[Rfam]
Small Cajal body specific RNA 6: a 271-nucleotide RNA sequence from Callithrix jacchus.
RNA sequence: AGUCAAUGAUGAAGGGUAAAAGGUUUGAGUCUCAAGAUCCCCUGCCAGCGUCCCAGUUAUCCCCAGCUGCCACUUCUCCAUUGGGCUUCCAAAGUUAGAAUUGCUGUGAUGGGCAGAAGGGCAGCUGACACUCAGUGAUGUCCCCGUUCUGUGUUCCUCCGAGAGCUCAGGGAAAAUGCUGGUUGGCAUCCAAUAGCUUAGUCCCAGAGGGAUUUGAUUGUUGGGAGUGCUGGUAUCUGUGGCUGUGCUCUGACUUGUUAAAGCUAAGACC
Numbered sequence: 001a002g003u004c005a006a007u008g009a010u011g012a013a014g015g016g017u018a019a020a021a022g023g024u025u026u027g028a029g030u031c032u033c034a035a036g037a038u039c040c041c042c043u044g045c046c047a048g049c050g051u052c053c054c055a056g057u058u059a060u061c062c063c064c065a066g067c068u069g070c071c072a073c074u075u076c077u078c079c080a081u082u083g084g085g086c087u088u089c090c091a092a093a094g095u096u097a098g099a100a101u102u103g104c105u106g107u108g109a110u111g112g113g114c115a116g117a118a119g120g121g122c123a124g125c126u127g128a129c130a131c132u133c134a135g136u137g138a139u140g141u142c143c144c145c146g147u148u149c150u151g152u153g154u155u156c157c158u159c160c161g162a163g164a165g166c167u168c169a170g171g172g173a174a175a176a177u178g179c180u181g182g183u184u185g186g187c188a189u190c191c192a193a194u195a196g197c198u199u200a201g202u203c204c205c206a207g208a209g210g211g212a213u214u215u216g217a218u219u220g221u222u223g224g225g226a227g228u229g230c231u232g233g234u235a236u237c238u239g240u241g242g243c244u245g246u247g248c249u250c251u252g253a254c255u256u257g258u259u260a261a262a263g264c265u266a267a268g269a270c271c
Base pairs, nucleotide, nucleotide: 002270003269004268035251036250037249039247042227043226045224046223047222048221049220060212061211062210063209064127065126066125067124068123069122070121077113078112079111080110081109082108083107085105086103135191137190138189139188140187141186142185150178151177152176154174155173156172157171158170
The base pairs follow the family's consensus structure, which is taken from published work. Rfam's curators write: U88 is small Cajal body specific RNA (scaRNA). scaRNAs are a novel class of small nuclear RNAs which localise to the Cajal bodies. U88 is found associated with both fibrillarin and Gar1p and co-localises with coilin in Cajal bodies. A search with the family's covariance model found it, with a score of 214 bits. Rfam classes the family as a small Cajal body RNA.